RNA: mir-223 microRNA precursor family
RNA sequence: ACAUCUGGGCACGGCGUUGCGCUCCGUAUAUUUGAUAAGCUGAAUUUGACACUCAUUUGUGGUAGAGUGUCAGUUUAUCAAAUAUUCUAAGCGAGGCGUCUGAUCAG
Numbered sequence: 001a002c003a004u005c006u007g008g009g010c011a012c013g014g015c016g017u018u019g020c021g022c023u024c025c026g027u028a029u030a031u032u033u034g035a036u037a038a039g040c041u042g043a044a045u046u047u048g049a050c051a052c053u054c055a056u057u058u059g060u061g062g063u064a065g066a067g068u069g070u071c072a073g074u075u076u077a078u079c080a081a082a083u084a085u086u087c088u089a090a091g092c093g094a095g096g097c098g099u100c101u102g103a104u105c106a107g
Base pairs, nucleotide, nucleotide: 020093021092022091023090026087028085029084030083031082032081033080034079035078036077037076038075039074040073041072048071049070050069051068053066054065